[Rfam]
RNA: TPP riboswitch aptamer (THI element)
Organism: Sporosarcina sp. P19
RNA sequence: UUCCACCACUAGGGGUGCCUUCUUUUUGGCUGAGAUGCAAUUAUGCAAACCCUUUGAACCUGAUCUAGUACAUACUAGCGGAGGAAAGUGGGUAGUUUUUAUA
Numbered sequence: 001u002u003c004c005a006c007c008a009c010u011a012g013g014g015g016u017g018c019c020u021u022c023u024u025u026u027u028g029g030c031u032g033a034g035a036u037g038c039a040a041u042u043a044u045g046c047a048a049a050c051c052c053u054u055u056g057a058a059c060c061u062g063a064u065c066u067a068g069u070a071c072a073u074a075c076u077a078g079c080g081g082a083g084g085a086a087a088g089u090g091g092g093u094a095g096u097u098u099u100u101a102u103a
Stems, first nucleotide, its partner, number of pairs: 006091005011053004016047001017030003037046003059084003065078004